[Rfam]
RNA sequence: GGCGAUAAACGGUCAUUGUAAUAAACCCAUCGGACCCGGGGCAGUACCCGGCGUCUCCACCAUCUCCUCCCGAAAGGGGUGAGCCAAUGGGGACGAAACAGGAUCGACGAGGGCGUAAAGAGUGUGCUUUUGCUCGGUGAGGUACCACCGUUAUCGGUCCGAAACUUAUAGUUGCUAAUGACAACAAUAAGGCUCCAGUCGCUCUCGCCGCCUAA
Numbered sequence: 001g002g003c004g005a006u007a008a009a010c011g012g013u014c015a016u017u018g019u020a021a022u023a024a025a026c027c028c029a030u031c032g033g034a035c036c037c038g039g040g041g042c043a044g045u046a047c048c049c050g051g052c053g054u055c056u057c058c059a060c061c062a063u064c065u066c067c068u069c070c071c072g073a074a075a076g077g078g079g080u081g082a083g084c085c086a087a088u089g090g091g092g093a094c095g096a097a098a099c100a101g102g103a104u105c106g107a108c109g110a111g112g113g114c115g116u117a118a119a120g121a122g123u124g125u126g127c128u129u130u131u132g133c134u135c136g137g138u139g140a141g142g143u144a145c146c147a148c149c150g151u152u153a154u155c156g157g158u159c160c161g162a163a164a165c166u167u168a169u170a171g172u173u174g175c176u177a178a179u180g181a182c183a184a185c186a187a188u189a190a191g192g193c194u195c196c197a198g199u200c201g202c203u204c205u206c207g208c209c210g211c212c213u214a215a
Stems, first nucleotide, its partner, number of pairs: 001134005014124004026113003030110003036051005052095007135150004
RNA: permuted transfer-messenger RNA